[Rfam]
A member of the RNA family "Group II catalytic intron D1-D4-4" from Clostridium sp. BL8, 139 nucleotides long.
RNA sequence: UAGCUGGGGAAGGACCAGUAGUAAUAAAAGGUAGAAGUUACUUAGCUUGGAUAGAAGUGUGGAUGGUAACUGAAAUGCUUGAGCCUAUCGACGAAAAUCUGGGUAAGCCAGGUGAGCAACUUAGCAGGCUGUAAUGAAA
Number, nucleotide and partner (000 for none) at each position: 001u000002a000003g000004c000005u000006g000007g000008g000009g000010a000011a000012g000013g000014a000015c000016c000017a000018g000019u000020a042021g041022u040023a039024a038025u000026a000027a000028a000029a000030g000031g000032u000033a000034g000035a000036a000037g000038u024039u023040a022041c021042u020043u000044a000045g000046c000047u000048u000049g000050g089051a088052u087053a086054g085055a080056a079057g078058u077059g076060u075061g000062g000063a000064u000065g070066g000067u000068a000069a000070c065071u000072g000073a000074a000075a060076u059077g058078c057079u056080u055081g000082a000083g000084c000085c054086u053087a052088u051089c050090g000091a000092c000093g000094a000095a000096a000097a113098u112099c111100u110101g109102g108103g000104u000105a000106a000107g000108c102109c101110a100111g099112g098113u097114g000115a000116g132117c131118a130119a000120c000121u000122u000123a000124g000125c000126a000127g000128g000129c000130u118131g117132u116133a000134a000135u000136g000137a000138a000139a000

Overview:
Gene Ontology term of the family: Group II intron splicing. Rfam describes the family as follows. Group II introns are found in rRNA, tRNA and mRNA of organelles in fungi, plants and protists, and also in mRNA in bacteria.